[Rfam]
RNA sequence: ACUUAUUCUCAGGGCGGGGUGAGAGUCCCCACCGGCGGUAUCCCAAUGAUCAAUGGGGAGCCCGCGAGCGCCCUUCUUUUUUGAAGGGGUCAGCAGAACUGGUGAGAGGCCAGUGCCGACGGUAUAGUCCGGAUGGAAGAGGAUAAGA
Numbered sequence: 001a002c003u004u005a006u007u008c009u010c011a012g013g014g015c016g017g018g019g020u021g022a023g024a025g026u027c028c029c030c031a032c033c034g035g036c037g038g039u040a041u042c043c044c045a046a047u048g049a050u051c052a053a054u055g056g057g058g059a060g061c062c063c064g065c066g067a068g069c070g071c072c073c074u075u076c077u078u079u080u081u082u083g084a085a086g087g088g089g090u091c092a093g094c095a096g097a098a099c100u101g102g103u104g105a106g107a108g109g110c111c112a113g114u115g116c117c118g119a120c121g122g123u124a125u126a127g128u129c130c131g132g133a134u135g136g137a138a139g140a141g142g143a144u145a146a147g148a
Base pairs, nucleotide, nucleotide: 003146004145005144006143007142008141009140010139017029018028019027031128032127033118034117035065036064037063038062060116061115068094069093098114099113100112101111102110120131121130122129
RNA: FMN riboswitch aptamer (RFN element)